RNA: tRNA
Organism: Hucho hucho
RNA sequence: GUUUCUGUAGUGUAGUGGUUAUCACGUUCGCUUUACACGCGACAGGUCCUCGGUUCGAUACCAGGCAGAAACA
Numbered sequence: 001g002u003u004u005c006u007g008u009a010g011u012g013u014a015g016u017g018g019u020u021a022u023c024a025c026g027u028u029c030g031c032u033u034u035a036c037a038c039g040c041g042a043c044a045g046g047u048c049c050u051c052g053g054u055u056c057g058a059u060a061c062c063a064g065g066c067a068g069a070a071a072c073a
Base pairs, nucleotide, nucleotide: 001072002071003070004069005068006067007066010025011024012023028042029041030040031039048065049064050063052062053061